Small Cajal body-specific RNA 7: a 321-nucleotide RNA sequence from Lophotis ruficrista. Pairs were carried over by alignment from the consensus structure. The family's RNA type in Rfam is small Cajal body RNA. For this family Rfam cites "Cajal body-specific small nuclear RNAs: a novel class of 2'-O-methylation and pseudouridylation guide RNAs" (Darzacq et al., EMBO J, 2002). Rfam links the family to the GO terms nucleolus and RNA processing. The match comes from Rfam's covariance-model search (174 bits).
[Rfam]
RNA sequence: UGGAGGUGAUGAAAUAGAGAUAAUUGGAUGUCUGUUUGAAUGGAGUGUGUGUGAUAAAUGGAAUUGACACCAAGGCAGGCUGGGGGUGGGUUGUGGGGAAUGCGUGUGUGCGUGCGCAUGUAUAGGAGAGGCUUUAAACGGGGGCGCUGAUAAUGCAGUGCUGAUUCCGGAGUGCAUCUGAGGCAUGUUGUUAAAUUCUGGGGUGCCACUUUACAACACUGCCGAUGAUUAAAGCCCAAAACAAGCCCACCAGGACAAGCCUAAGCAUCCUAAAAUCUCUAACAGGUUCAUUAAUGAAAGUGAUCCUGUGCUCUGAUCCGA
Numbered sequence: 001u002g003g004a005g006g007u008g009a010u011g012a013a014a015u016a017g018a019g020a021u022a023a024u025u026g027g028a029u030g031u032c033u034g035u036u037u038g039a040a041u042g043g044a045g046u047g048u049g050u051g052u053g054a055u056a057a058a059u060g061g062a063a064u065u066g067a068c069a070c071c072a073a074g075g076c077a078g079g080c081u082g083g084g085g086g087u088g089g090g091u092u093g094u095g096g097g098g099a100a101u102g103c104g105u106g107u108g109u110g111c112g113u114g115c116g117c118a119u120g121u122a123u124a125g126g127a128g129a130g131g132c133u134u135u136a137a138a139c140g141g142g143g144g145c146g147c148u149g150a151u152a153a154u155g156c157a158g159u160g161c162u163g164a165u166u167c168c169g170g171a172g173u174g175c176a177u178c179u180g181a182g183g184c185a186u187g188u189u190g191u192u193a194a195a196u197u198c199u200g201g202g203g204u205g206c207c208a209c210u211u212u213a214c215a216a217c218a219c220u221g222c223c224g225a226u227g228a229u230u231a232a233a234g235c236c237c238a239a240a241a242c243a244a245g246c247c248c249a250c251c252a253g254g255a256c257a258a259g260c261c262u263a264a265g266c267a268u269c270c271u272a273a274a275a276u277c278u279c280u281a282a283c284a285g286g287u288u289c290a291u292u293a294a295u296g297a298a299a300g301u302g303a304u305c306c307u308g309u310g311c312u313c314u315g316a317u318c319c320g321a
Stems, first nucleotide, its partner, number of pairs: 001320004186218006193211001196205001198203001